[Rfam]
RNA sequence: CCUUAGACUGCUUUAGCAGCGCAUCAUGGUUUGAAACAAUAUGGUAGAGGUGCGAACCAUUAUUUGCUGCUUUAGAAUUUUAAGG
Numbered sequence: 001c002c003u004u005a006g007a008c009u010g011c012u013u014u015a016g017c018a019g020c021g022c023a024u025c026a027u028g029g030u031u032u033g034a035a036a037c038a039a040u041a042u043g044g045u046a047g048a049g050g051u052g053c054g055a056a057c058c059a060u061u062a063u064u065u066g067c068u069g070c071u072u073u074a075g076a077a078u079u080u081u082a083a084g085g
Base pairs, nucleotide, nucleotide: 001085002084003083004082005081006080015071016070017069018068019067020066021065023063024062026060027059028058029057030056031055032054033053035051

The record is an 85-nucleotide sequence from Gouania willdenowi, which matches "mir-15 microRNA precursor family" in Rfam. The family's consensus secondary structure was predicted with RNAalifold. This family represents the related mir-15a and mir-15b sequences. In humans miR-15a and miR-16 are clustered within 0.5 kb at 13q14. This region has been shown to be deleted in more than half of B cell chronic lymphocytic leukaemias (CLL). Both miR-15a and miR-16 are deleted or down-regulated in more than two thirds of CLL cases.